[Rfam]
RNA: Group II catalytic intron D1-D4-4
RNA sequence: UAACUGGUGAAAGUCCAGUCUAGGUAAUUGCCAAGAAGCCUAGUAGCUAUAAGACCAAUGUCAGCAGAGAUGGUGGCAUUGAAGCGUCUCGAAAAUGUGCCUUAGUGGUGCUAGCAAAGAUGCAGACCGUAACAUAA
Numbered sequence: 001u002a003a004c005u006g007g008u009g010a011a012a013g014u015c016c017a018g019u020c021u022a023g024g025u026a027a028u029u030g031c032c033a034a035g036a037a038g039c040c041u042a043g044u045a046g047c048u049a050u051a052a053g054a055c056c057a058a059u060g061u062c063a064g065c066a067g068a069g070a071u072g073g074u075g076g077c078a079u080u081g082a083a084g085c086g087u088c089u090c091g092a093a094a095a096u097g098u099g100c101c102u103u104a105g106u107g108g109u110g111c112u113a114g115c116a117a118a119g120a121u122g123c124a125g126a127c128c129g130u131a132a133c134a135u136a137a
Stems, first nucleotide, its partner, number of pairs: 020043005052089004056081006065072002097111005114130002